[Rfam]
RNA sequence: GUGGGCAUCUUACUAGACAGUGCUGGAUUCUCUCCUCUACUCUAACACUGUCUGGUAACGAUGUUUAA
Number, nucleotide and partner (000 for none) at each position: 001g000002u067003g066004g065005g064006c063007a062008u061009c060010u058011u057012a056013c055014u054015a053016g052017a051018c050019a049020g048021u047022g046023c000024u044025g043026g042027a041028u000029u000030c000031u000032c000033u000034c000035c000036u000037c000038u000039a000040c000041u027042c026043u025044a024045a000046c022047a021048c020049u019050g018051u017052c016053u015054g014055g013056u012057a011058a010059c000060g009061a008062u007063g006064u005065u004066u003067a002068a000